Background:
This 115-nucleotide RNA sequence from Leersia perrieri belongs to the Rfam family "Small nucleolar RNA Z188". The family's RNA type in Rfam is C/D-box small nucleolar RNA. Taxonomically the source falls in Leersia (Eukaryota, commelinids, Poaceae, Oryzinae).
RNA sequence: GCAUGCUGUUGACGAUUAAAGAUCUAGCAAUGGAUAAUACGAUGAAUGUGCUCGCGUGCCGCUGGGUGUGCAGCUGUGAUGAUAUGCAUUCUUACGCAGUUCAUCUGAGGCAAGC
Numbered sequence: 001g002c003a004u005g006c007u008g009u010u011g012a013c014g015a016u017u018a019a020a021g022a023u024c025u026a027g028c029a030a031u032g033g034a035u036a037a038u039a040c041g042a043u044g045a046a047u048g049u050g051c052u053c054g055c056g057u058g059c060c061g062c063u064g065g066g067u068g069u070g071c072a073g074c075u076g077u078g079a080u081g082a083u084a085u086g087c088a089u090u091c092u093u094a095c096g097c098a099g100u101u102c103a104u105c106u107g108a109g110g111c112a113a114g115c
Stems, first nucleotide, its partner, number of pairs: 002114001004112004